[Rfam]
RNA: Zeta-pan RNA
RNA sequence: CAUCCUGAAAGACGGUACUGACAACAGACCGAAGCGGAAAGGUGAAUAUG
Numbered sequence: 001c002a003u004c005c006u007g008a009a010a011g012a013c014g015g016u017a018c019u020g021a022c023a024a025c026a027g028a029c030c031g032a033a034g035c036g037g038a039a040a041g042g043u044g045a046a047u048a049u050g
Base pairs, nucleotide, nucleotide: 013031014030015029016028018027019026020025